[Rfam]
RNA sequence: AUUUUAAAAAUAGAGCAGGCGAUACAUUCUUUUGAAUGUGUGGGGCUGGGCUGGCAUGAGCUGGCAACAGGAUAUUAUGCCUGUGGGACUAUA
Numbered sequence: 001a002u003u004u005u006a007a008a009a010a011u012a013g014a015g016c017a018g019g020c021g022a023u024a025c026a027u028u029c030u031u032u033u034g035a036a037u038g039u040g041u042g043g044g045g046c047u048g049g050g051c052u053g054g055c056a057u058g059a060g061c062u063g064g065c066a067a068c069a070g071g072a073u074a075u076u077a078u079g080c081c082u083g084u085g086g087g088a089c090u091a092u093a
Stems, first nucleotide, its partner, number of pairs: 010092004016087001018047003022041006050065005067084005